[Rfam]
RNA sequence: GGGCUUGUAGCUCAGUUUGGUUAGAGCGCACGCCUGAUAAGCGUGAGGUCGGCUGUUCAAGUCAGCCCAGGCCCA
Numbered sequence: 001g002g003g004c005u006u007g008u009a010g011c012u013c014a015g016u017u018u019g020g021u022u023a024g025a026g027c028g029c030a031c032g033c034c035u036g037a038u039a040a041g042c043g044u045g046a047g048g049u050c051g052g053c054u055g056u057u058c059a060a061g062u063c064a065g066c067c068c069a070g071g072c073c074c075a
Stems, first nucleotide, its partner, number of pairs: 001074007010027004029045005051067005
Dot-bracket structure: (((((((..((((..........)))).(((((.......))))).....(((((.......)))))))))))).
Description:
A member of the RNA family "tRNA" from Candidatus Syntrophosphaera thermopropionivorans, 75 nucleotides long. It is annotated as a transfer RNA. It scores 69 bits against the family's covariance model.